Annotation: This 98-nucleotide sequence from Bacillus mesophilum belongs to the Rfam family "Guanidine-I riboswitch aptamer".

RNA sequence: AAAAAUGUUUUCUAGGGUUCCGCAGCUUAGAGCUGGUCUGGUCCGAGAGAAAACUCACAGCUCUUGCUGUGCCACGGAAGGAUAAAAGCCUGGGAGAA
Numbered sequence: 001a002a003a004a005a006u007g008u009u010u011u012c013u014a015g016g017g018u019u020c021c022g023c024a025g026c027u028u029a030g031a032g033c034u035g036g037u038c039u040g041g042u043c044c045g046a047g048a049g050a051a052a053a054c055u056c057a058c059a060g061c062u063c064u065u066g067c068u069g070u071g072c073c074a075c076g077g078a079a080g081g082a083u084a085a086a087a088g089c090c091u092g093g094g095a096g097a098a
Base pairs, nucleotide, nucleotide: 007054008053009052010051011050012049015044016043020041021040022038023035024034025033026032027031056071057070058069059068060067061066073093075096079091080090081089
The organism belongs to Bacillus, within Bacteria. It scores 88 bits against the family's covariance model. The base pairs follow the family's consensus structure. This family represents a conserved RNA structure found upstream of the ykkC and yxkD genes in Bacillus subtilis and related genes in other bacteria. The function of this family is unclear although it has been suggested that it may function to switch on efflux pumps and detoxification systems in response to harmful environmental molecules.